[Rfam]
RNA: TPP riboswitch aptamer (THI element)
RNA sequence: UUAAACUACUAGGGGUGCCCAAAAAGCGUGGGCUGAGAGGGAAGCGUGUAUCAUUUCCCGACUCUUAUGGACCUGAUCUGGUUAAUACCAGCGGAGGGAAGUAGUCUGACAUAUGU
Numbered sequence: 001u002u003a004a005a006c007u008a009c010u011a012g013g014g015g016u017g018c019c020c021a022a023a024a025a026g027c028g029u030g031g032g033c034u035g036a037g038a039g040g041g042a043a044g045c046g047u048g049u050a051u052c053a054u055u056u057c058c059c060g061a062c063u064c065u066u067a068u069g070g071a072c073c074u075g076a077u078c079u080g081g082u083u084a085a086u087a088c089c090a091g092c093g094g095a096g097g098g099a100a101g102u103a104g105u106c107u108g109a110c111a112u113a114u115g116u
Stems, first nucleotide, its partner, number of pairs: 006104005011065004017033005040058005072097003078091004